[Rfam]
Source information
Shown here is a 127-nucleotide sequence from Enterococcus hermanniensis, a member of the family "Ribosomal protein L10 leader". This family is a putative r-protein leader autoregulatory structure found in B. subtilis and other low-GC Gram-positive bacteria. It is located in the 5' untranslated regions of mRNAs encoding ribosomal proteins L10 and L12 (rplJ-rplL). A Rho-independent transcription terminator structure that is probably involved in regulation is included at the 3' end. The organism belongs to Enterococcus, within Bacteria.

RNA sequence: GGUUAAUUAUUAACUGUACCGAAGACAGUAGGCGACGUAAGUCUUAAUUUCCUACCGAGGACGUUUAUUGAGAACAUUCAAUAGUCCCUCUAUGUCUACGGUGGCAUGGAGUUUUUUUGUAUCUAUU
Numbered sequence: 001g002g003u004u005a006a007u008u009a010u011u012a013a014c015u016g017u018a019c020c021g022a023a024g025a026c027a028g029u030a031g032g033c034g035a036c037g038u039a040a041g042u043c044u045u046a047a048u049u050u051c052c053u054a055c056c057g058a059g060g061a062c063g064u065u066u067a068u069u070g071a072g073a074a075c076a077u078u079c080a081a082u083a084g085u086c087c088c089u090c091u092a093u094g095u096c097u098a099c100g101g102u103g104g105c106a107u108g109g110a111g112u113u114u115u116u117u118u119g120u121a122u123c124u125a126u127u
Stems, first nucleotide, its partner, number of pairs: 028055005034043003088111009